[Rfam]
The family of this 196-nucleotide RNA sequence from Sphingobium sp. TCM1 is "Manganese Mn2+ riboswitch aptamer (yybP-ykoY)". Its family is annotated with manganese ion binding in the Gene Ontology. The organism belongs to Sphingobium, within Bacteria. A reference for the family is Barrick et al. (2004), "New RNA motifs suggest an expanded scope for riboswitches in bacterial genetic control", Proc Natl Acad Sci U S A.
RNA sequence: UAGCGCGUCAUCUGGGGAGUAGCCAGCCGUUCCGCGCCAUGCGGACGGGCCAUAUGUCAACAUAUUUGGCCGAGAGGCCAUGGCAUAUGGGAGGCGGAUCGCAAGCAUCCGCAUCGGGCGAGACCAAUGGCAUCGGCGCUUUUCUGUCCGGCCGGGCGGGAGGCGACGGUGGCAUUGCGUCUGUUCACCUCCGCCC
Dot-bracket structure: ..........................(((((............))))).((((((((((.......(((((....)))))))))))))))..(((((.............................................................................................))))).